RNA sequence: UAUAUGUGCAUGCCGAAUUUCUCUUAAAGAAAACGGGGGAACCAUUUUUGGGGUGAAUCCGCCAAAGGCGGUAGGGAUUAUCCUUUGUCCGAACCCGACAGCUAACCUCGCAGGCAUAUAGAAAGGAGUG
Numbered sequence: 001u002a003u004a005u006g007u008g009c010a011u012g013c014c015g016a017a018u019u020u021c022u023c024u025u026a027a028a029g030a031a032a033a034c035g036g037g038g039g040a041a042c043c044a045u046u047u048u049u050g051g052g053g054u055g056a057a058u059c060c061g062c063c064a065a066a067g068g069c070g071g072u073a074g075g076g077a078u079u080a081u082c083c084u085u086u087g088u089c090c091g092a093a094c095c096c097g098a099c100a101g102c103u104a105a106c107c108u109c110g111c112a113g114g115c116a117u118a119u120a121g122a123a124a125g126g127a128g129u130g
Base pairs, nucleotide, nucleotide: 011116012115013114014113018032019031020030021029022028034110035109036108037107038106043050044049051096052095053094059071060070061069062068074090075089076088
Shown here is a 130-nucleotide RNA from Propionispora vibrioides, a member of the family "c-di-AMP riboswitch aptamer (ydaO/yuaA leader)". Rfam's curators write: This family represents a conserved RNA structure found upstream of the ydaO and yuaA genes in Bacillus subtilis and related genes in other bacteria. The source organism's lineage runs through Bacteria, Bacillati, Negativicutes, Selenomonadales and Propionispora.